The record is a 259-nucleotide sequence from Desulfuribacillus alkaliarsenatis, which matches "Group II catalytic intron D1-D4-6" in Rfam. Rfam's curators write: Group II introns are found in rRNA, tRNA and mRNA of organelles in fungi, plants and protists, and also in mRNA in bacteria. The base pairs follow the family's consensus structure. Taxonomically the source falls in Desulfuribacillus (Bacteria, Bacillota, Desulfuribacillia, Desulfuribacillaceae). The match comes from Rfam's covariance-model search (129 bits).
[Rfam]
RNA sequence: UAAGUCCUUACAUGAUAAGGUCUAGCCAACCAUCAUUAUCGAGUGUUGUACCGUUAUUGGUGACAAUAAAGGUAAAGCGUACACAGAGAGUAUAUAGACCAUAGGGGAACCGCAUCCCUGAAGCACAUUCAGCCCCGUUAAUGCAGUACCUAUCAUUAUAGGUAAAAAUGCAGACGACGACAUAUUUAACGUUAUGGAAGUCAACACAAAAGAAUCGAAAAUGGCGAGAUUCUGGAGGGUCUGUCGGUGUCUAAGCACA
Numbered sequence: 001u002a003a004g005u006c007c008u009u010a011c012a013u014g015a016u017a018a019g020g021u022c023u024a025g026c027c028a029a030c031c032a033u034c035a036u037u038a039u040c041g042a043g044u045g046u047u048g049u050a051c052c053g054u055u056a057u058u059g060g061u062g063a064c065a066a067u068a069a070a071g072g073u074a075a076a077g078c079g080u081a082c083a084c085a086g087a088g089a090g091u092a093u094a095u096a097g098a099c100c101a102u103a104g105g106g107g108a109a110c111c112g113c114a115u116c117c118c119u120g121a122a123g124c125a126c127a128u129u130c131a132g133c134c135c136c137g138u139u140a141a142u143g144c145a146g147u148a149c150c151u152a153u154c155a156u157u158a159u160a161g162g163u164a165a166a167a168a169u170g171c172a173g174a175c176g177a178c179g180a181c182a183u184a185u186u187u188a189a190c191g192u193u194a195u196g197g198a199a200g201u202c203a204a205c206a207c208a209a210a211a212g213a214a215u216c217g218a219a220a221a222u223g224g225c226g227a228g229a230u231u232c233u234g235g236a237g238g239g240u241c242u243g244u245c246g247g248u249g250u251c252u253a254a255g256c257a258c259a
Base pairs, nucleotide, nucleotide: 012036013035014034015033019031020030021029023227025225026224039087040086043084044083045082046081047079048078049074050073051072052071054069055068056067057066058065059064129253132250133249135247136246137245170244171243172242173241174240175239176202177201178200181196182195183194184193207238211233212232213231214230215229216228